[Rfam]
RNA sequence: GGCCUAAAGCAUCCGUAGCUUGUUCUGCAAGUCCUCCGUUAAAUCCACCUGCUCAACAGAUGGGCUGCGGAGGAUACUACAGGGCUAGGAGGCGGGAGAGGCAAGCGGUACUCAGUGGGUAGGGGUAAAAUCCUCUGAUCCACCGAAGACCACCAGUGGCGAAGGCGGCUUGCCAGAACGCGCUCGACGGUGAGGGAUGAAAGCUGGGGGAGCAAACCGGAUUAGAUACCCGGGUAGUCCCAGCUGUAAACGAUGCAGACUCGGUGAUGGGUUGGCUUCGCGCCAACCCAGUGCCGCAGGGAAGCCGUUAAGUCUGCCGCCUGGGGAGUACGGUCGCAAGACUGAAACUUAAAGGAAU
Numbered sequence: 001g002g003c004c005u006a007a008a009g010c011a012u013c014c015g016u017a018g019c020u021u022g023u024u025c026u027g028c029a030a031g032u033c034c035u036c037c038g039u040u041a042a043a044u045c046c047a048c049c050u051g052c053u054c055a056a057c058a059g060a061u062g063g064g065c066u067g068c069g070g071a072g073g074a075u076a077c078u079a080c081a082g083g084g085c086u087a088g089g090a091g092g093c094g095g096g097a098g099a100g101g102c103a104a105g106c107g108g109u110a111c112u113c114a115g116u117g118g119g120u121a122g123g124g125g126u127a128a129a130a131u132c133c134u135c136u137g138a139u140c141c142a143c144c145g146a147a148g149a150c151c152a153c154c155a156g157u158g159g160c161g162a163a164g165g166c167g168g169c170u171u172g173c174c175a176g177a178a179c180g181c182g183c184u185c186g187a188c189g190g191u192g193a194g195g196g197a198u199g200a201a202a203g204c205u206g207g208g209g210g211a212g213c214a215a216a217c218c219g220g221a222u223u224a225g226a227u228a229c230c231c232g233g234g235u236a237g238u239c240c241c242a243g244c245u246g247u248a249a250a251c252g253a254u255g256c257a258g259a260c261u262c263g264g265u266g267a268u269g270g271g272u273u274g275g276c277u278u279c280g281c282g283c284c285a286a287c288c289c290a291g292u293g294c295c296g297c298a299g300g301g302a303a304g305c306c307g308u309u310a311a312g313u314c315u316g317c318c319g320c321c322u323g324g325g326g327a328g329u330a331c332g333g334u335c336g337c338a339a340g341a342c343u344g345a346a347a348c349u350u351a352a353a354g355g356a357a358u
Base pairs, nucleotide, nucleotide: 001321002320003319009318011198012197013196014195016192018191019190020189022085023084024083025082026081027080030078031077032074033073034072035071036070037069038068039067045063046062047061049059050058051057089185090184091183092181093180094179100174101173102172103171104170105169106168107151108150112146113145115143116142117141118140122133123132124131159166160165203244204243205242206241207240208239212238213237217233218232219231220230255317256316257315258314259313260312263295264294265293266292268290269289270288271287272286273285274284275283276282299306300305323350324349325348332343333342334341335340
A member of the RNA family "Archaeal small subunit ribosomal RNA" from Candidatus Nitrososphaera gargensis, 358 nucleotides of a longer RNA. It is one of the family's seed sequences. Rfam links the family to the GO terms structural constituent of ribosome and ribosome. The literature on the family includes a 2001 paper in Science by Yusupov et al., "Crystal structure of the ribosome at 5.5 A resolution".